[Rfam]
RNA: Group II catalytic intron D1-D4-3
RNA sequence: UCCAUCGUGAGAUGGAAUCUGAAGGAAGCUGCUGGCAAAGUUCCGGCCCGACGAACAGGAAUCGCAUACGAGGCAGCCAUAUCUGGGCGAGGGAGCCAUGAUACCCAAAGCCCGAUCGUCAUCCAGAAGAUAGGGAAGUAUAUGCGGCGGGUAUAUGGAAUGAAGGUCUCGUGUC
Numbered sequence: 001u002c003c004a005u006c007g008u009g010a011g012a013u014g015g016a017a018u019c020u021g022a023a024g025g026a027a028g029c030u031g032c033u034g035g036c037a038a039a040g041u042u043c044c045g046g047c048c049c050g051a052c053g054a055a056c057a058g059g060a061a062u063c064g065c066a067u068a069c070g071a072g073g074c075a076g077c078c079a080u081a082u083c084u085g086g087g088c089g090a091g092g093g094a095g096c097c098a099u100g101a102u103a104c105c106c107a108a109a110g111c112c113c114g115a116u117c118g119u120c121a122u123c124c125a126g127a128a129g130a131u132a133g134g135g136a137a138g139u140a141u142a143u144g145c146g147g148c149g150g151g152u153a154u155a156u157g158g159a160a161u162g163a164a165g166g167u168c169u170c171g172u173g174u175c
Stems, first nucleotide, its partner, number of pairs: 001016006028175001030173003035167002040161006046152005062147006073139002077134002080132004085113004091106003